mir-36 microRNA precursor family: a 101-nucleotide RNA sequence from Caenorhabditis brenneri.
The family is grouped with related families in Rfam's "mir-36 clan".
The family's consensus secondary structure was predicted with WAR.
A reference for the family is Ohler et al. (2004), "Patterns of flanking sequence conservation and a characteristic upstream motif for microRNA gene identification", RNA.
Taxonomically the source falls in Caenorhabditis (Eukaryota, Opisthokonta, Chromadorea, Rhabditomorpha).
RNA sequence: CAAUCCAGGUUGGAUCGGGCCUAUGCUGUUCUUUGCUGCUGUGAUAUUUCUGAGUCGUGAUUAUCACCGGGCGAAUAUCGGCACAGGCCCGGUCCUUCUUU
Numbered sequence: 001c002a003a004u005c006c007a008g009g010u011u012g013g014a015u016c017g018g019g020c021c022u023a024u025g026c027u028g029u030u031c032u033u034u035g036c037u038g039c040u041g042u043g044a045u046a047u048u049u050c051u052g053a054g055u056c057g058u059g060a061u062u063a064u065c066a067c068c069g070g071g072c073g074a075a076u077a078u079c080g081g082c083a084c085a086g087g088c089c090c091g092g093u094c095c096u097u098c099u100u101u
Stems, first nucleotide, its partner, number of pairs: 016091007024083005030077001032075006039069001041067006